[Rfam]
RNA sequence: AGCUCAAUGAUAGCAGCCAAUUAUUAUUUUGGCGAUAUACACUAUUCUGAUAGAGUUUGUUGUUAAGUGCUGGCAUUGGUAUAUACUGAGAGCU
Numbered sequence: 001a002g003c004u005c006a007a008u009g010a011u012a013g014c015a016g017c018c019a020a021u022u023a024u025u026a027u028u029u030u031g032g033c034g035a036u037a038u039a040c041a042c043u044a045u046u047c048u049g050a051u052a053g054a055g056u057u058u059g060u061u062g063u064u065a066a067g068u069g070c071u072g073g074c075a076u077u078g079g080u081a082u083a084u085a086c087u088g089a090g091a092g093c094u
Stems, first nucleotide, its partner, number of pairs: 001094005
This 94-nucleotide RNA from Phoenix dactylifera belongs to the Rfam family "Small nucleolar RNA U54". Rfam's curators write: U54 is a C/D box small nucleolar RNA, which acts as a methylation guide for 18S ribosomal RNA in plants. Its Rfam clan is "U54 clan". The match comes from Rfam's covariance-model search (53 bits).